[Rfam]
RNA sequence: GGGUGCCUGAAGCUUUCCGGUUUCAGGUUAACUCUGAGGUCUGGAAAGAUGAAGCCCCAGGAGAUAUUUCUAUCAAUCCUGGGGCUGCCACUCCGAGCCUCAACAACUCGGAUGGUAGUCCCUUCUUCGCAUGGAGGCAAUAUAAACAUGCUGACG
Number, nucleotide and partner (000 for none) at each position: 001g058002g057003g056004u000005g055006c054007c000008u053009g000010a000011a050012g000013c048014u047015u046016u045017c044018c043019g042020g041021u000022u039023u000024c038025a000026g000027g035028u000029u000030a000031a000032c000033u000034c000035u027036g000037a000038g024039g022040u000041c020042u019043g018044g017045a016046a015047a014048g013049a000050u011051g000052a000053a008054g006055c005056c003057c002058c001059a080060g079061g078062a000063g074064a073065u072066a071067u000068u000069u000070c000071u066072a065073u064074c063075a000076a000077u000078c061079c060080u059081g122082g121083g120084g119085c118086u000087g000088c115089c114090a113091c000092u111093c000094c110095g109096a108097g107098c000099c000100u000101c000102a000103a000104c000105a000106a000107c097108u096109c095110g094111g092112a000113u090114g089115g088116u000117a000118g085119u084120c083121c082122c081123u000124u000125c000126u148127u000128c000129g000130c000131a143132u000133g000134g000135a000136g000137g000138c000139a000140a000141u000142a000143u131144a000145a000146a000147c000148a126149u000150g000151c000152u000153g000154a000155c000156g000
Record summary
Rfam assigns this 156-nucleotide RNA from Shigella boydii to the family "sok antitoxin (CssrC)". For this family Rfam cites "An antisense RNA controls synthesis of an SOS-induced toxin evolved from an antitoxin" (Kawano et al., Mol Microbiol, 2007). The match comes from Rfam's covariance-model search (86 bits). The family has 91 seed sequences and 305 matches in Rfam 15.1. Taxonomically the source falls in Shigella boydii (Bacteria, Pseudomonadati, Gammaproteobacteria, Enterobacteriaceae). Its family is annotated with mRNA binding in the Gene Ontology. Rfam classes the family as an antitoxin RNA. Rfam describes the family as follows. Also identified in Shigella as CssrC.